[Rfam]
This 82-nucleotide RNA sequence belongs to the Rfam family "skipping-rope RNA".

RNA sequence: GGUUUUUGAGGUGGGAAAGGUACCCCACGCGCUACAGUUAGCUGUAGUUACCAGAGAUCAGGAUUGCCGCCCUGCUUUAACC
Numbered sequence: 001g002g003u004u005u006u007u008g009a010g011g012u013g014g015g016a017a018a019g020g021u022a023c024c025c026c027a028c029g030c031g032c033u034a035c036a037g038u039u040a041g042c043u044g045u046a047g048u049u050a051c052c053a054g055a056g057a058u059c060a061g062g063a064u065u066g067c068c069g070c071c072c073u074g075c076u077u078u079a080a081c082c
Stems, first nucleotide, its partner, number of pairs: 001082004008075001011028005019068004030054001031048007059074004
It is one of the family's seed sequences.